[Rfam]
RNA sequence: AAAUAGGGAUACGGGGGCUUGGGUGAACCAAGCUGAGAUUGCAGUAUAUUCCGCUGCGGACCGUUAAUCUGAUCUGGAUAAUGCCAGCGUAGAGAAUCCGCACGUCCGUUAA
Numbered sequence: 001a002a003a004u005a006g007g008g009a010u011a012c013g014g015g016g017g018c019u020u021g022g023g024u025g026a027a028c029c030a031a032g033c034u035g036a037g038a039u040u041g042c043a044g045u046a047u048a049u050u051c052c053g054c055u056g057c058g059g060a061c062c063g064u065u066a067a068u069c070u071g072a073u074c075u076g077g078a079u080a081a082u083g084c085c086a087g088c089g090u091a092g093a094g095a096a097u098c099c100g101c102a103c104g105u106c107c108g109u110u111a112a
Stems, first nucleotide, its partner, number of pairs: 007099004011064004017033005040058005068093004074087004
Dot-bracket structure: ......((((((((..(((((.......)))))......(((((.........)))))..))))...((((..((((......))))..))))..)))).............
TPP riboswitch aptamer (THI element): a 112-nucleotide RNA sequence from Fontibacillus panacisegetis. The source organism's lineage runs through Bacteria, Bacillati, Bacillota, Caryophanales and Fontibacillus. It scores 62 bits against the family's covariance model.